[Rfam]
RNA: Eukaryotic small subunit ribosomal RNA, nucleotides 1651 to 1821
Organism: Magallana gigas
RNA sequence: CCGCCCGUCGCUACUACCGAUUGGAUGGUUUAGUGAGCCCCUUGGACUGGUCCCGACGGCGCGGCAACGCGUUUUCGUCGCUGGUGCCGGGAAGAAGGGCAAACUGUACUUUCUAGAGGUCGUAAAAGUCGUAACAAGGUUUCCGUAGGUGAACCUGCGGAAGGAUCAUUA
Number, nucleotide and partner (000 for none) at each position: 001c138002c000003g135004c000005c000006c131007g130008u000009c128010g000011c000012u124013a123014c122015u000016a120017c119018c118019g000020a000021u115022u000023g114024g113025a112026u000027g110028g109029u108030u000031u106032a105033g104034u103035g000036a000037g100038c099039c098040c097041c000042u095043u094044g000045g000046a000047c090048u089049g088050g087051u086052c000053c084054c083055g082056a000057c080058g079059g078060c077061g076062c000063g000064g000065c000066a000067a000068c000069g000070c000071g000072u000073u000074u000075u000076c061077g060078u059079c058080g057081c000082u055083g054084g053085u000086g051087c050088c049089g048090g047091g000092a000093a000094g043095a042096a000097g040098g039099g038100c037101a000102a000103a034104c033105u032106g031107u000108a029109c028110u027111u000112u025113c024114u023115a021116g000117a000118g018119g017120u016121c000122g014123u013124a012125a000126a000127a000128g009129u000130c007131g006132u000133a000134a000135c003136a000137a000138g001139g000140u163141u162142u161143c160144c159145g158146u157147a156148g155149g154150u000151g000152a000153a000154c149155c148156u147157g146158c145159g144160g143161a142162a141163g140164g000165a000166u000167c000168a000169u000170u000171a000